A member of the RNA family "Selenocysteine insertion sequence 1" from Liparis tanakae, 63 nucleotides long. The incorporation of selenocysteine into a protein sequence is directed by an in-frame UGA codon (usually a stop codon) within the coding region of the mRNA. Selenoprotein mRNAs contain a conserved secondary structure in the 3' UTR that is required for the distinction of UGA stop from UGA selenocysteine. Lineage of the source: Eukaryota > Opisthokonta > Actinopteri > Teleostei > Liparis. It is annotated as a cis-regulatory element.
RNA sequence: GUGUGUUAAUGAUGGUCUGUCUUUAAACUCCCAGAGAGGAAGCAGACCUGAUGUCUAACACUC
Numbered sequence: 001g002u003g004u005g006u007u008a009a010u011g012a013u014g015g016u017c018u019g020u021c022u023u024u025a026a027a028c029u030c031c032c033a034g035a036g037a038g039g040a041a042g043c044a045g046a047c048c049u050g051a052u053g054u055c056u057a058a059c060a061c062u063c
Stems, first nucleotide, its partner, number of pairs: 001063001003061003014048007022040002028038003